The family of this 114-nucleotide RNA sequence from Chelonoidis abingdonii is "mraW RNA". The source organism's lineage runs through Eukaryota, Vertebrata, Euteleostomi, Cryptodira and Chelonoidis nigra species complex. The match comes from Rfam's covariance-model search (52 bits). It is annotated as a cis-regulatory element.
RNA sequence: CAGUGGUGUAGAAGUUCUGGCUCGGGCUGAAGCCUGGGCUCUGAGACUCUUCCCCUCCUCUGGGUUUCAGAGCCCAGGCUCCAGCCUGAGUGAAAACUUCUGCACUGGUAGUUU
Numbered sequence: 001c002a003g004u005g006g007u008g009u010a011g012a013a014g015u016u017c018u019g020g021c022u023c024g025g026g027c028u029g030a031a032g033c034c035u036g037g038g039c040u041c042u043g044a045g046a047c048u049c050u051u052c053c054c055c056u057c058c059u060c061u062g063g064g065u066u067u068c069a070g071a072g073c074c075c076a077g078g079c080u081c082c083a084g085c086c087u088g089a090g091u092g093a094a095a096a097c098u099u100c101u102g103c104a105c106u107g108g109u110a111g112u113u114u
Base pairs, nucleotide, nucleotide: 010101011100012099013098014097015096016095018093021090022089023088024087025086026085027084028083029082031080032079033078034077035076036075037074038073039072040071041070042069043068044067045066046065047064048063049062